The family of this 85-nucleotide RNA sequence from Rattus norvegicus is "mir-877 microRNA precursor family". Rfam links the family to the GO terms miRNA-mediated post-transcriptional gene silencing and RISC complex. On this family, see Berezikov et al., Genome Res 2006: "Many novel mammalian microRNA candidates identified by extensive cloning and RAKE analysis".

[Rfam]
RNA sequence: GUAGAGGAGAUGGCGCAGGGGACACAAGGUAGGCCUUGCGGGUCUGUGGGCCCUUGGACAUGUGUCCUCUUCUCCCUCCUCCCAG
Numbered sequence: 001g002u003a004g005a006g007g008a009g010a011u012g013g014c015g016c017a018g019g020g021g022a023c024a025c026a027a028g029g030u031a032g033g034c035c036u037u038g039c040g041g042g043u044c045u046g047u048g049g050g051c052c053c054u055u056g057g058a059c060a061u062g063u064g065u066c067c068u069c070u071u072c073u074c075c076c077u078c079c080u081c082c083c084a085g
Stems, first nucleotide, its partner, number of pairs: 004081006012075002015072001017070010028059001036057003040053005